Description
The family of this 114-nucleotide RNA sequence from Roseospira navarrensis is "Guanidine-I riboswitch aptamer". Rfam links the family to the GO term regulation of gene expression.
[Rfam]
RNA sequence: AUCGUGAGCAGCUAGGGUUCCGGCCGCGCCAGAGGGCGCGGUGUAUCACUGGUCCGAGAGCUGCCGCCCCGCCGCGACAGGCGGGGUACACGGCGGGACAAAAGCCCGGGAGGC
Numbered sequence: 001a002u003c004g005u006g007a008g009c010a011g012c013u014a015g016g017g018u019u020c021c022g023g024c025c026g027c028g029c030c031a032g033a034g035g036g037c038g039c040g041g042u043g044u045a046u047c048a049c050u051g052g053u054c055c056g057a058g059a060g061c062u063g064c065c066g067c068c069c070c071g072c073c074g075c076g077a078c079a080g081g082c083g084g085g086g087u088a089c090a091c092g093g094c095g096g097g098a099c100a101a102a103a104g105c106c107c108g109g110g111a112g113g114c
Base pairs, nucleotide, nucleotide: 008064009063010062011061012060015055016054020052021051022049023042024041025040026039027038028037066087067086068085069084070083071082072081073080089109091112095107096106097105